RNA sequence: UUUCGUUCUCGGGGCGGGGUGAAAUUCCCCACCGGCGGUAAAGACUCUCUUUAUGUAUAUUAAUACAUAGAUAAAGUUUAAGCCCGCGAGCGCCUUUAAGCCUUUUUAUAUUAAAGUGCCUUUAGGGUCAGCAGAUCUGGUGUGAUUCCAGAGCCGACGGUUACAGUCCGGAUGAUAGAGAGCGUGU
Numbered sequence: 001u002u003u004c005g006u007u008c009u010c011g012g013g014g015c016g017g018g019g020u021g022a023a024a025u026u027c028c029c030c031a032c033c034g035g036c037g038g039u040a041a042a043g044a045c046u047c048u049c050u051u052u053a054u055g056u057a058u059a060u061u062a063a064u065a066c067a068u069a070g071a072u073a074a075a076g077u078u079u080a081a082g083c084c085c086g087c088g089a090g091c092g093c094c095u096u097u098a099a100g101c102c103u104u105u106u107u108a109u110a111u112u113a114a115a116g117u118g119c120c121u122u123u124a125g126g127g128u129c130a131g132c133a134g135a136u137c138u139g140g141u142g143u144g145a146u147u148c149c150a151g152a153g154c155c156g157a158c159g160g161u162u163a164c165a166g167u168c169c170g171g172a173u174g175a176u177a178g179a180g181a182g183c184g185u186g187u
Stems, first nucleotide, its partner, number of pairs: 004184007017029003031167002033156002035087004090132002136152005158170003
FMN riboswitch aptamer (RFN element): a 187-nucleotide RNA sequence from Marinomonas ushuaiensis. The organism belongs to Marinomonas ushuaiensis, within Bacteria.